[Rfam]
RNA: Small nucleolar RNA SNORA17
Organism: Formicarius rufipectus
RNA sequence: UCUGCCCCAGCUCGUGUUGCAGGCGUGGCUGCAGUGCCACAUUUGUGUCAUUCGGUGGCAGAGAGGACAAGGCAAGGUCUUCCCCUGGUGCUCUGACCCAUGUGGGCUCCCAGGAUCGCUCGACAACCUGACA
Numbered sequence: 001u002c003u004g005c006c007c008c009a010g011c012u013c014g015u016g017u018u019g020c021a022g023g024c025g026u027g028g029c030u031g032c033a034g035u036g037c038c039a040c041a042u043u044u045g046u047g048u049c050a051u052u053c054g055g056u057g058g059c060a061g062a063g064a065g066g067a068c069a070a071g072g073c074a075a076g077g078u079c080u081u082c083c084c085c086u087g088g089u090g091c092u093c094u095g096a097c098c099c100a101u102g103u104g105g106g107c108u109c110c111c112a113g114g115a116u117c118g119c120u121c122g123a124c125a126a127c128c129u130g131a132c133a
Base pairs, nucleotide, nucleotide: 002061003060004059005058006057007055008054010052014048015047019046020045021044022043025040026039027038028037029036068130071124073122075120076119081115082114083113087111088110090107091106092105093104